[Rfam]
RNA sequence: GUUUUGCGUGAGGGAUAGAAGCGACAUCCUUUUGUGAAGCGAUAGCGGAACAAAAGAUAUAGCGUAUAGCCCGACCCUUG
Numbered sequence: 001g002u003u004u005u006g007c008g009u010g011a012g013g014g015a016u017a018g019a020a021g022c023g024a025c026a027u028c029c030u031u032u033u034g035u036g037a038a039g040c041g042a043u044a045g046c047g048g049a050a051c052a053a054a055a056g057a058u059a060u061a062g063c064g065u066a067u068a069g070c071c072c073g074a075c076c077c078u079u080g
Base pairs, nucleotide, nucleotide: 012072013071014070016068017067021063022062026058027057028056032053033052034051035050
RNA: Flavo-1 RNA